Shown here is a 126-nucleotide RNA sequence from Bacillus methanolicus, a member of the family "Ribosomal protein L20 leader".
Gene Ontology term of the family: regulation of gene expression.
The base pairs follow the family's consensus structure, which was predicted with CMfinder.
This family is a putative r-protein leader autoregulatory structure found in B. subtilis and other low-GC Gram-positive bacteria.
The family's RNA type in Rfam is cis-regulatory leader.
[Rfam]
RNA sequence: GUGAAAAAGAAGAAGCACCCGCUUCUCACCUGAUUGACGCUGUUGGCAGUUGACAGGUUUACGUAAAACUUUAAGGCUAGCUGUGUCUAUUAGUGCGGGUGUUUUCAUCCGCACUUUUUUAUUUUU
Numbered sequence: 001g002u003g004a005a006a007a008a009g010a011a012g013a014a015g016c017a018c019c020c021g022c023u024u025c026u027c028a029c030c031u032g033a034u035u036g037a038c039g040c041u042g043u044u045g046g047c048a049g050u051u052g053a054c055a056g057g058u059u060u061a062c063g064u065a066a067a068a069c070u071u072u073a074a075g076g077c078u079a080g081c082u083g084u085g086u087c088u089a090u091u092a093g094u095g096c097g098g099g100u101g102u103u104u105u106c107a108u109c110c111g112c113a114c115u116u117u118u119u120u121a122u123u124u125u126u
Stems, first nucleotide, its partner, number of pairs: 011026006028058003036051003039047002094113008